RNA sequence: GGCCUGCCGUUUGCAACUGCACCCCUGCAGGCAGUCAACGCCGAUUGCCAUCUUCACGACAAAGGCGCCGU
Numbered sequence: 001g002g003c004c005u006g007c008c009g010u011u012u013g014c015a016a017c018u019g020c021a022c023c024c025c026u027g028c029a030g031g032c033a034g035u036c037a038a039c040g041c042c043g044a045u046u047g048c049c050a051u052c053u054u055c056a057c058g059a060c061a062a063a064g065g066c067g068c069c070g071u
Base pairs, nucleotide, nucleotide: 030049031048032047033046034045035044036043

Rfam assigns this 71-nucleotide sequence to the family "narK RNA". The family's RNA type in Rfam is cis-regulatory element.